The record is a 68-nucleotide sequence, which matches "Caenorhabditis snoRNA ceN108" in Rfam.
Rfam links the family to the GO terms nucleolus and RNA processing.
It scores 87 bits against the family's covariance model.
By type it is a C/D-box small nucleolar RNA.
RNA sequence: GUGCAAUGAAUGACUUGGAUAAGUUUCGGCUGAAAUCAAUUGAUGCCAACUUUUAAAAUGCUGAGCAC
Numbered sequence: 001g002u003g004c005a006a007u008g009a010a011u012g013a014c015u016u017g018g019a020u021a022a023g024u025u026u027c028g029g030c031u032g033a034a035a036u037c038a039a040u041u042g043a044u045g046c047c048a049a050c051u052u053u054u055a056a057a058a059u060g061c062u063g064a065g066c067a068c
Stems, first nucleotide, its partner, number of pairs: 001068004